Transposase-2 RNA: a 67-nucleotide sequence from Micromonospora craniellae. NCBI's taxonomy places the organism under Bacteria, Bacillati, Actinomycetes, Micromonosporales, Micromonospora. It is annotated as a small RNA. It scores 60 bits against the family's covariance model.

RNA sequence: GAAGCGUCAACCCGGCAUCGCGUUCGCGGGUCAGACCGGGACCAUCCCACCGCAAGGCGGGACUACU
Numbered sequence: 001g002a003a004g005c006g007u008c009a010a011c012c013c014g015g016c017a018u019c020g021c022g023u024u025c026g027c028g029g030g031u032c033a034g035a036c037c038g039g040g041a042c043c044a045u046c047c048c049a050c051c052g053c054a055a056g057g058c059g060g061g062a063c064u065a066c067u
Base pairs, nucleotide, nucleotide: 011040012039013038014037015036018029019028020027021026045062046061047060048059050057051056